[Rfam]
RNA sequence: CCUGCCGAAGUUUCCCUCAGGAUAGCAGAAACUCACAAAGCAGUUUUAUGGGGUAAAGCGAAUGAUUAGAGGCCUUGGGGGCGAAAUGCCCUUAACCUAUUCUCAAACUUUAAAUAUGUAAGACGCCUUUCUUUCUUAAUUGAAGUUGGGCCUUUGAAUGCAGAGUUUCUAGUGGGCCAUUUUUGGUAAGCAGAACUGGCGAUGCGGGAUGAACCGAACGUAGAGUUAAGGUGCCCAAAUUUACGCUCAUCAGACACCACAAAAGGUGUUAGUUCAUCUAGACAGCAGGACGGUGGCCAUGGAAGUCGGAAACCGCUAAGGAGUGUGUAACAACUCACCUGCCGAAUGAACUAGCCCUGAAAAUGGAUGGCGCUUAAGCGUAAUACCUAUACUCUACCGUCAAUGUAAAAGCGAAGCAUUGACGAGUAGGCAGGCGUGGAGGUUUUGUAUAGAAGCCGUGGGCGUGAGCUCUGGUGAAACAGCCUCUAGUGCAGAU
Dot-bracket structure: ((((((....(.(((....))).).(((((((.......(((.(((.(.((....((......((((((.((....((((((..........................................))))))..)).))))))....))...)).).))))))...)))))).)...((((.((((.......)))).))))....(((......)))...(((((((...(((......(.((((((.................(((.((((((((((.......(((((.(((...((.........))...)))(...)(...((......)).).)))))...)))))))))))))...................))))))))))...)))))))((.(((((...........))))).))....))))))(.(((((((..(((......((((.((((....))))))))...))))))))))..).....
Numbered sequence: 001c002c003u004g005c006c007g008a009a010g011u012u013u014c015c016c017u018c019a020g021g022a023u024a025g026c027a028g029a030a031a032c033u034c035a036c037a038a039a040g041c042a043g044u045u046u047u048a049u050g051g052g053g054u055a056a057a058g059c060g061a062a063u064g065a066u067u068a069g070a071g072g073c074c075u076u077g078g079g080g081g082c083g084a085a086a087u088g089c090c091c092u093u094a095a096c097c098u099a100u101u102c103u104c105a106a107a108c109u110u111u112a113a114a115u116a117u118g119u120a121a122g123a124c125g126c127c128u129u130u131c132u133u134u135c136u137u138a139a140u141u142g143a144a145g146u147u148g149g150g151c152c153u154u155u156g157a158a159u160g161c162a163g164a165g166u167u168u169c170u171a172g173u174g175g176g177c178c179a180u181u182u183u184u185g186g187u188a189a190g191c192a193g194a195a196c197u198g199g200c201g202a203u204g205c206g207g208g209a210u211g212a213a214c215c216g217a218a219c220g221u222a223g224a225g226u227u228a229a230g231g232u233g234c235c236c237a238a239a240u241u242u243a244c245g246c247u248c249a250u251c252a253g254a255c256a257c258c259a260c261a262a263a264a265g266g267u268g269u270u271a272g273u274u275c276a277u278c279u280a281g282a283c284a285g286c287a288g289g290a291c292g293g294u295g296g297c298c299a300u301g302g303a304a305g306u307c308g309g310a311a312a313c314c315g316c317u318a319a320g321g322a323g324u325g326u327g328u329a330a331c332a333a334c335u336c337a338c339c340u341g342c343c344g345a346a347u348g349a350a351c352u353a354g355c356c357c358u359g360a361a362a363a364u365g366g367a368u369g370g371c372g373c374u375u376a377a378g379c380g381u382a383a384u385a386c387c388u389a390u391a392c393u394c395u396a397c398c399g400u401c402a403a404u405g406u407a408a409a410a411g412c413g414a415a416g417c418a419u420u421g422a423c424g425a426g427u428a429g430g431c432a433g434g435c436g437u438g439g440a441g442g443u444u445u446u447g448u449a450u451a452g453a454a455g456c457c458g459u460g461g462g463c464g465u466g467a468g469c470u471c472u473g474g475u476g477a478a479a480c481a482g483c484c485u486c487u488a489g490u491g492c493a494g495a496u
Stems, first nucleotide, its partner, number of pairs: 001434006011024001013022003026172001027170006040161003044158003048154001050152002056147002064141006071134002077130006176200004181195004205216003220397007230387003239384001241383006264358003268355010285342005291315003297309002316320001321336001325334002398424002401421005435491001437488007446481003455475004460471004